Shown here is a 106-nucleotide RNA from Dubosiella newyorkensis, a member of the family "S10-Clostridia ribosomal protein leader".

[Rfam]
RNA sequence: GCACUGCGUAGAAGUGCGAGGUUGCUGACCCACUGAAAAGCGUUGUCAUGGGUGAGUCAGGUAAUUCGCAUGGAGCAUGUUUAUCUAGAAUAAACGAAAGGAGCAA
Numbered sequence: 001g002c003a004c005u006g007c008g009u010a011g012a013a014g015u016g017c018g019a020g021g022u023u024g025c026u027g028a029c030c031c032a033c034u035g036a037a038a039a040g041c042g043u044u045g046u047c048a049u050g051g052g053u054g055a056g057u058c059a060g061g062u063a064a065u066u067c068g069c070a071u072g073g074a075g076c077a078u079g080u081u082u083a084u085c086u087a088g089a090a091u092a093a094a095c096g097a098a099a100g101g102a103g104c105a106a
Stems, first nucleotide, its partner, number of pairs: 014071003018067003025060005078105004084101003
The literature on the family includes a 2020 paper in BMC Microbiol by Eckert and Weinberg, "Discovery of 20 novel ribosomal leader candidates in bacteria and archaea".
NCBI's taxonomy places the organism under Bacteria, Bacillati, Bacillota, Erysipelotrichaceae, Dubosiella.
The family's RNA type in Rfam is cis-regulatory leader.